[Rfam]
RNA sequence: GUGAAUUGUUUUACAAUUCUUAUAAUAAAGUUGCCUGUCAAUCCUCUGAUAUUCUUGUGAUGUAUUCAUGAAUCCAGACAGGUUCUGAUCGC
Numbered sequence: 001g002u003g004a005a006u007u008g009u010u011u012u013a014c015a016a017u018u019c020u021u022a023u024a025a026u027a028a029a030g031u032u033g034c035c036u037g038u039c040a041a042u043c044c045u046c047u048g049a050u051a052u053u054c055u056u057g058u059g060a061u062g063u064a065u066u067c068a069u070g071a072a073u074c075c076a077g078a079c080a081g082g083u084u085c086u087g088a089u090c091g092c
Stems, first nucleotide, its partner, number of pairs: 001092004
RNA: Small nucleolar RNA snoR14
Organism: Trifolium medium